[Rfam]
RNA sequence: UCCGGAUUAGCUCAGUCGGUAGAGCGCUUGACUGUUAAUCAAGAUGUCGCCAGUUCGAGUCUGGCAUCCGGAG
Dot-bracket structure: (((((((..((((........)))).(((((.......))))).....(((((.......)))))))))))).
RNA: tRNA